The family of this 203-nucleotide sequence from Nannospalax galili is "Small nucleolar RNA SNORA73 family". The family's RNA type in Rfam is H/ACA-box small nucleolar RNA. The source organism's lineage runs through Eukaryota, Eumetazoa, Tetrapoda, Glires and Nannospalax. Rfam's curators write: U17 (SNORA73A and SNORA73B) also known as E1 belongs to the H/ACA class of small nucleolar RNAs (snoRNAs). Vertebrate U17 is intron-encoded and ranges in length from 200-230 nucleotides, longer than most snoRNAs. Clan: snR30-U17 clan. A search with the family's covariance model found it, with a score of 198 bits.
RNA sequence: CCAACGUGUAUAUCCCGGGAGGUCACUCUCCCCGGGCUCUGUCCUAGUGGCGUAGGGGAGCAUAGGGCUCUGUCCCAUGAUGUACAGUCCCUUUCCACAACGUUGGAGAUGAAGCUGGGCUUCGAGUCUGCGGCCUGCAUAUUCCUACAACUUCCCAGAGUUCUAGACAAUGACUGGGGAGACAAACCAUGCAGGAAACAGUC
Numbered sequence: 001c002c003a004a005c006g007u008g009u010a011u012a013u014c015c016c017g018g019g020a021g022g023u024c025a026c027u028c029u030c031c032c033c034g035g036g037c038u039c040u041g042u043c044c045u046a047g048u049g050g051c052g053u054a055g056g057g058g059a060g061c062a063u064a065g066g067g068c069u070c071u072g073u074c075c076c077a078u079g080a081u082g083u084a085c086a087g088u089c090c091c092u093u094u095c096c097a098c099a100a101c102g103u104u105g106g107a108g109a110u111g112a113a114g115c116u117g118g119g120c121u122u123c124g125a126g127u128c129u130g131c132g133g134c135c136u137g138c139a140u141a142u143u144c145c146u147a148c149a150a151c152u153u154c155c156c157a158g159a160g161u162u163c164u165a166g167a168c169a170a171u172g173a174c175u176g177g178g179g180a181g182a183c184a185a186a187c188c189a190u191g192c193a194g195g196a197a198a199c200a201g202u203c
Base pairs, nucleotide, nucleotide: 001106002105003104004103005102006101007100008044010042011041012040014036015035016034018029019028020027021026047098048097049096050095056091057090058089059088060085062083063082064081065078134195135194136193137192138191139190140189151181152180153179154178155177156176160168161167162166
Dot-bracket structure: ((((((((.(((.(((.((((....))))....)))...))).)..((((.....(((((.((((............)..))).)..))))...)))).)))))))...........................(((((((..........((((((...(((...))).......)))))).......)))))))........